[Rfam]
RNA sequence: UUACUCACUCAUAAUCAAGGGCUGCCGCAUGAAGUGGUAGAAAAGCAUAUUGCAGGCCAUGCGAUAAGCUUUCUCACAAUUUGUGUGGUUAUUACUAUGCUUAUUGCUGUUGCCGUAAAUGUGCGGUGCGGGAGCCGCUGACGA
Numbered sequence: 001u002u003a004c005u006c007a008c009u010c011a012u013a014a015u016c017a018a019g020g021g022c023u024g025c026c027g028c029a030u031g032a033a034g035u036g037g038u039a040g041a042a043a044a045g046c047a048u049a050u051u052g053c054a055g056g057c058c059a060u061g062c063g064a065u066a067a068g069c070u071u072u073c074u075c076a077c078a079a080u081u082u083g084u085g086u087g088g089u090u091a092u093u094a095c096u097a098u099g100c101u102u103a104u105u106g107c108u109g110u111u112g113c114c115g116u117a118a119a120u121g122u123g124c125g126g127u128g129c130g131g132g133a134g135c136c137g138c139u140g141a142c143g144a
Base pairs, nucleotide, nucleotide: 015141016140017139020136021135022134023133025131026130027129028128029127030126045124046123047122048121049120050119051118055114056113057112061107062106063105064104065103066102067101068100069099075085076084077083078082086097087096088095089094
Dot-bracket structure: ..............(((..((((.((((((..............(((((((...(((...(((((((((.....((((...))))((((....)))).)))))))))....)))...))))))).)))))).))))..)))...
Shown here is a 144-nucleotide sequence from Salmonella enterica, a member of the family "Salmonella enterica Typhi npcRNA 3". A reference for the family is Nithya et al. (2015), "Non-protein coding RNA genes as the novel diagnostic markers for the discrimination of Salmonella species using PCR", PLoS One. By type it is a small RNA. The source organism's lineage runs through Bacteria, Pseudomonadota, Salmonella, Salmonella enterica and Salmonella enterica subsp. enterica serovar Senftenberg. The family's consensus secondary structure was predicted with RNAfold.